[Rfam]
A member of the RNA family "Eukaryotic large subunit ribosomal RNA" from Yarrowia lipolytica, 590 nucleotides of a longer RNA. Rfam's curators put it in the seed alignment. The base pairs follow the family's consensus structure, which is taken from published work. Gene Ontology terms of the family: ribosome and structural constituent of ribosome. A reference for the family is Yusupov et al. (2001), "Crystal structure of the ribosome at 5.5 A resolution", Science. The source organism's lineage runs through Eukaryota, Fungi, saccharomyceta, Dipodascomycetes and Yarrowia.
RNA sequence: AUCAGCGGGGAAAGAAGACCCUGUUGAGCUUGACUCUAGUUUGACAUUGUGAAGAGACAUAGGGGGUGUAGAAUAAGUGGGAGCUUCGGCGCCGGUGAAAUACCACUACCCUUAUCGUUUCUUUACUUAUUUAGUAAGUGGAAGUGGUUUAACAACCAUUUUCUAGCAUUCCUUUCCAGGCUGAAGACAUUGUCAGGUGGGGAGUUUGGCUGGGGCGGCACAUCUGUUAAAAGAUAACGCAGAUGUCCUAAGGGGGACUCAAUGAGAACAGAAAUCUCAUGUAGAACAAAAGGGUAAAAGUCCCCUUGAUUUUGAUUUUCAGUGUGAAUACAAACCAUGAAAGUGUGGCCUAUCGAUCCUUUAGUUGUUCGGAGUUUGAACCUAGAGGUGCCAGAAAAGUUACCACAGGGAUAACUGGCUUGUGGCAGUCAAGCGUUCAUAGCGACAUUGCUUUUUGAUCCUUCGAUGUCGGCUCUUCCUAUCAUACCGAAGCAGAAUUCGGUAAGCGUUGGAUUGUUCACCCACUAAUAGGGAACGUGAGCUGGGUUUAGACCGUCGUGAGACAGGUUAGUUUUACCCUACUGAUGGAC
Number, nucleotide and partner (000 for none) at each position: 001a586002u585003c584004a583005g582006c000007g000008g580009g579010g578011a000012a575013a574014g000015a000016a000017g000018a000019c000020c409021c408022u407023g406024u000025u405026g404027a401028g400029c399030u398031u397032g000033a205034c204035u203036c202037u000038a000039g000040u197041u196042u195043g194044a193045c192046a191047u000048u000049g126050u125051g124052a123053a122054g121055a120056g119057a118058c117059a115060u114061a113062g112063g111064g110065g109066g000067u000068g000069u000070a000071g000072a000073a000074u000075a000076a107077g106078u105079g104080g103081g000082a000083g090084c089085u000086u000087c000088g000089g084090c083091g000092c000093c000094g000095g000096u000097g000098a000099a000100a000101u000102a000103c080104c079105a078106c077107u076108a000109c065110c064111c063112u062113u061114a060115u059116c000117g058118u057119u056120u055121c054122u053123u052124u051125a050126c049127u000128u000129a000130u185131u184132u183133a182134g181135u000136a000137a000138g000139u178140g177141g176142a175143a000144g000145u000146g000147g156148u155149u000150u000151a000152a000153c000154a000155a148156c147157c000158a000159u000160u000161u000162u000163c000164u000165a000166g000167c000168a000169u000170u000171c000172c000173u000174u000175u142176c141177c140178a139179g000180g000181c134182u133183g132184a131185a130186g000187a000188c000189a000190u000191u046192g045193u044194c043195a042196g041197g040198u000199g000200g000201g000202g036203a035204g034205u033206u000207u000208g221209g219210c218211u217212g000213g000214g000215g000216c000217g211218g210219c209220a000221c208222a244223u243224c242225u241226g240227u239228u000229a000230a000231a000232a000233g000234a000235u000236a000237a000238c000239g227240c226241a225242g224243a223244u222245g000246u000247c348248c347249u000250a000251a000252g000253g305254g304255g303256g302257a301258c300259u285260c284261a000262a280263u279264g278265a277266g276267a275268a000269c000270a000271g000272a000273a000274a000275u267276c266277u265278c264279a263280u262281g000282u000283a000284g260285a259286a295287c294288a000289a000290a000291a000292g000293g000294g287295u286296a000297a000298a000299a000300g258301u257302c256303c255304c254305c253306u000307u000308g000309a000310u334311u333312u332313u000314g000315a329316u328317u327318u326319u000320c000321a000322g000323u000324g000325u000326g318327a317328a316329u315330a000331c000332a312333a311334a310335c000336c345337a344338u343339g000340a000341a000342a000343g338344u337345g336346u000347g248348g247349c000350c000351u000352a000353u000354c000355g000356a000357u000358c000359c387360u386361u385362u384363a383364g382365u000366u000367g381368u380369u379370c378371g000372g000373a000374g000375u000376u000377u000378g370379a369380a368381c367382c364383u363384a362385g361386a360387g359388g000389u000390g000391c000392c000393a000394g000395a000396a000397a031398a030399g029400u028401u027402a000403c000404c026405a025406c023407a022408g021409g020410g000411a000412u000413a000414a000415c000416u000417g000418g459419c000420u457421u000422g456423u000424g452425g451426c450427a449428g448429u447430c000431a000432a000433g443434c442435g000436u000437u000438c000439a000440u000441a000442g434443c433444g000445a000446c000447a429448u428449u427450g426451c425452u424453u000454u000455u000456u422457g420458a000459u418460c000461c000462u000463u000464c000465g000466a000467u000468g000469u000470c545471g543472g542473c541474u540475c537476u534477u533478c532479c531480u530481a000482u000483c508484a000485u000486a503487c502488c501489g500490a499491a498492g000493c000494a000495g000496a000497a000498u491499u490500c489501g488502g487503u486504a000505a000506g000507c000508g483509u000510u524511g523512g522513a000514u520515u000516g000517u000518u000519c000520a514521c000522c512523c511524a510525c000526u000527a000528a000529u000530a480531g479532g478533g477534a476535a000536c000537g475538u000539g000540a474541g473542c472543u471544g000545g470546g000547u000548u000549u000550a000551g569552a568553c567554c566555g564556u563557c562558g000559u000560g000561a000562g557563a556564c555565a000566g554567g553568u552569u551570a000571g000572u000573u000574u013575u012576a000577c000578c010579c009580u008581a000582c005583u004584g003585a002586u001587g000588g000589a000590c000